Shown here is a 55-nucleotide sequence from Protea cynaroides, a member of the family "Plastid-ndhJ 3UTR RNA". Rfam's curators write: Plastid ndhJ is a non-coding RNA (ncRNA) present in plastids. It scores 49 bits against the family's covariance model. For this family Rfam cites "Retrograde signaling in plants: A critical review focusing on the GUN pathway and beyond" (Richter et al., Plant Commun, 2023).
RNA sequence: CCAUGAGAGAGUAUCGCGCACAUCACUUAGAUGGCUCUAGAAAGUCACAUAGCAC
Numbered sequence: 001c002c003a004u005g006a007g008a009g010a011g012u013a014u015c016g017c018g019c020a021c022a023u024c025a026c027u028u029a030g031a032u033g034g035c036u037c038u039a040g041a042a043a044g045u046c047a048c049a050u051a052g053c054a055c
Stems, first nucleotide, its partner, number of pairs: 018035002021033004
Dot-bracket structure: .................((.((((.....))))))....................